SAM riboswitch aptamer (S box leader): a 94-nucleotide RNA from Dyadobacter psychrotolerans.
RNA sequence: GAUUUAUAAAGAAUGAAGGGAGAGGUUAGGCUCUAUGAUCUUCUGGCAACCUAUGACCUGUUAAGGUGCCCCAACCUAAUUCUAACGAUAAAUC
Numbered sequence: 001g002a003u004u005u006a007u008a009a010a011g012a013a014u015g016a017a018g019g020g021a022g023a024g025g026u027u028a029g030g031c032u033c034u035a036u037g038a039u040c041u042u043c044u045g046g047c048a049a050c051c052u053a054u055g056a057c058c059u060g061u062u063a064a065g066g067u068g069c070c071c072c073a074a075c076c077u078a079a080u081u082c083u084a085a086c087g088a089u090a091a092a093u094c
Stems, first nucleotide, its partner, number of pairs: 001094007013044001015043004022033003027078004045070004050066002053061003
The match comes from Rfam's covariance-model search (45 bits).